[Rfam]
RNA sequence: GCUGUUGUCGGGUGGAUCACGAUGCAAUUUUGGCUAAUGUGAUUAAAGAAAAAUUGCACGGUAUCCAUCUGUAAACCGCA
Number, nucleotide and partner (000 for none) at each position: 001g000002c000003u000004g000005u000006u000007g000008u000009c071010g070011g069012g068013u067014g066015g065016a064017u063018c000019a062020c061021g000022a000023u058024g057025c056026a055027a054028u053029u052030u051031u050032g000033g000034c000035u000036a000037a000038u000039g000040u000041g000042a000043u000044u000045a000046a000047a000048g000049a000050a031051a030052a029053a028054u027055u026056g025057c024058a023059c000060g000061g020062u019063a017064u016065c015066c014067a013068u012069c011070u010071g009072u000073a000074a000075a000076c000077c000078g000079c000080a000
Shown here is an 80-nucleotide RNA sequence from Erinaceus europaeus, a member of the family "mir-363 microRNA precursor family". The literature on the family includes a 2005 paper in BMC Bioinformatics by Sewer et al., "Identification of clustered microRNAs using an ab initio prediction method". The source organism's lineage runs through Eukaryota, Opisthokonta, Gnathostomata, Teleostomi and Erinaceus. Its Rfam clan is "mir-19 clan".